[Rfam]
RNA sequence: CUGGGAACAGCACAGCCGCAUAUCCGACUUCGUCGCGCAGGCCUCGCGCCUCGCGGCUUGGGAGUGCGGACGUGC
Numbered sequence: 001c002u003g004g005g006a007a008c009a010g011c012a013c014a015g016c017c018g019c020a021u022a023u024c025c026g027a028c029u030u031c032g033u034c035g036c037g038c039a040g041g042c043c044u045c046g047c048g049c050c051u052c053g054c055g056g057c058u059u060g061g062g063a064g065u066g067c068g069g070a071c072g073u074g075c
Stems, first nucleotide, its partner, number of pairs: 010075004016069006024062002032057006
S15-Halobacteria ribosomal protein leader: a 75-nucleotide RNA sequence. By type it is a cis-regulatory leader. The sequence is in the family's curated seed alignment. Pairs were carried over by alignment from the consensus structure, which is taken from published work. The literature on the family includes a 2020 paper in BMC Microbiol by Eckert and Weinberg, "Discovery of 20 novel ribosomal leader candidates in bacteria and archaea". The family is grouped with related families in Rfam's "Ribosomal Protein S15 Leader clan".